[Rfam]
RNA: FMN riboswitch aptamer (RFN element)
Organism: Sebaldella termitidis
RNA sequence: AAUAAACUUCAGGGCAGGGUUAAAUUCCCGACCGGUGGUAAAGUCCACGAGCUUAUAUUUAAGCAUGAACUGGUGUAAUUCCAGUACCGACAGUAAAGUCUGGAUGAAAGAAGUAAGUA
Numbered sequence: 001a002a003u004a005a006a007c008u009u010c011a012g013g014g015c016a017g018g019g020u021u022a023a024a025u026u027c028c029c030g031a032c033c034g035g036u037g038g039u040a041a042a043g044u045c046c047a048c049g050a051g052c053u054u055a056u057a058u059u060u061a062a063g064c065a066u067g068a069a070c071u072g073g074u075g076u077a078a079u080u081c082c083a084g085u086a087c088c089g090a091c092a093g094u095a096a097a098g099u100c101u102g103g104a105u106g107a108a109a110g111a112a113g114u115a116a117g118u119a
Stems, first nucleotide, its partner, number of pairs: 003117001006114005017029003031099002033089002035048004043087002053063001069085005091102003